[Rfam]
RNA: U5 spliceosomal RNA
Organism: Chionoecetes opilio
RNA sequence: AACUCUGGUUUCCCUUCAAAAGCAUAAAUCUUUCGCCUUUUACUAAAGAUUUCCGUGGGGGGGACAAAUCAAAGAGGCUUAAAUAAUUUUUUUUGGGCCCCCAUUGUGGGUUG
Numbered sequence: 001a002a003c004u005c006u007g008g009u010u011u012c013c014c015u016u017c018a019a020a021a022g023c024a025u026a027a028a029u030c031u032u033u034c035g036c037c038u039u040u041u042a043c044u045a046a047a048g049a050u051u052u053c054c055g056u057g058g059g060g061g062g063g064a065c066a067a068a069u070c071a072a073a074g075a076g077g078c079u080u081a082a083a084u085a086a087u088u089u090u091u092u093u094u095g096g097g098c099c100c101c102c103a104u105u106g107u108g109g110g111u112u113g
Stems, first nucleotide, its partner, number of pairs: 003076004010064009026052008096112005